Shown here is a 77-nucleotide RNA from Alligator mississippiensis, a member of the family "Mammalian CPEB3 ribozyme". Its family is annotated with RNA nuclease activity in the Gene Ontology. Pairs were carried over by alignment from the consensus structure, which is taken from published work. The mammalian CPEB3 ribozyme is a self cleaving RNA located in the second intron of the CPEB3 gene which belongs to a family of genes regulating messenger RNA polyadenylation. It scores 59 bits against the family's covariance model.
[Rfam]
RNA sequence: ACAUUUUCAAUGUGGGCCACAGCAGGAGCAUUCAUGUUGUAGCCCCUGUCAGAUUCCUCCAAUCUGCAAAUACUGCU
Numbered sequence: 001a002c003a004u005u006u007u008c009a010a011u012g013u014g015g016g017c018c019a020c021a022g023c024a025g026g027a028g029c030a031u032u033c034a035u036g037u038u039g040u041a042g043c044c045c046c047u048g049u050c051a052g053a054u055u056c057c058u059c060c061a062a063u064c065u066g067c068a069a070a071u072a073c074u075g076c077u
Stems, first nucleotide, its partner, number of pairs: 014045004021077005027071001028040003050066006